[Rfam]
RNA sequence: ACAGAAGGCCGGACGGUCGCGUGGCCCAUGGGCCGCGAGGAAAGUCCGGGCUCCACAAGGCAACGGUGCCGGGUAACGCCCGGGCGGGGUGACCCGACGGAAAGCGCCACAGAAAUGAAACCGCCUCGCAGGUCGGGGUAAGGAUGAAACGGUGGGGUAAGAGCCCACCGCGCCCCUGGCAACAGGGGCGGCACGGCAAGCCCCACCUGGAGCAAUGCCAAAUAGGGUCCCCGCGCGGGCAGGUCAGGCAACUGAUACCGCCGCUAGGUACGCUUUGACCGAGAGGGACCGGGUUGGCAGCUAGAAGCGUCUGGCAACAGGCGCUGCAGAUGAAUGACCGUCCAGGGGGCAACCCCGGACAGAACCCGGCUUACAGGCCUUCUGUGCAA
Numbered sequence: 001a002c003a004g005a006a007g008g009c010c011g012g013a014c015g016g017u018c019g020c021g022u023g024g025c026c027c028a029u030g031g032g033c034c035g036c037g038a039g040g041a042a043a044g045u046c047c048g049g050g051c052u053c054c055a056c057a058a059g060g061c062a063a064c065g066g067u068g069c070c071g072g073g074u075a076a077c078g079c080c081c082g083g084g085c086g087g088g089g090u091g092a093c094c095c096g097a098c099g100g101a102a103a104g105c106g107c108c109a110c111a112g113a114a115a116u117g118a119a120a121c122c123g124c125c126u127c128g129c130a131g132g133u134c135g136g137g138g139u140a141a142g143g144a145u146g147a148a149a150c151g152g153u154g155g156g157g158u159a160a161g162a163g164c165c166c167a168c169c170g171c172g173c174c175c176c177u178g179g180c181a182a183c184a185g186g187g188g189c190g191g192c193a194c195g196g197c198a199a200g201c202c203c204c205a206c207c208u209g210g211a212g213c214a215a216u217g218c219c220a221a222a223u224a225g226g227g228u229c230c231c232c233g234c235g236c237g238g239g240c241a242g243g244u245c246a247g248g249c250a251a252c253u254g255a256u257a258c259c260g261c262c263g264c265u266a267g268g269u270a271c272g273c274u275u276u277g278a279c280c281g282a283g284a285g286g287g288a289c290c291g292g293g294u295u296g297g298c299a300g301c302u303a304g305a306a307g308c309g310u311c312u313g314g315c316a317a318c319a320g321g322c323g324c325u326g327c328a329g330a331u332g333a334a335u336g337a338c339c340g341u342c343c344a345g346g347g348g349g350c351a352a353c354c355c356c357g358g359a360c361a362g363a364a365c366c367c368g369g370c371u372u373a374c375a376g377g378c379c380u381u382c383u384g385u386g387c388a389a
Stems, first nucleotide, its partner, number of pairs: 001385010011374001012342007020037007042372003046369005051212004062275001065207004069083005084098001085096004099203002104201002106197003121143002123139006151169006170192001171190008216299004226290006271281002306325008
RNA: Bacterial RNase P class A
Organism: Tritonibacter litoralis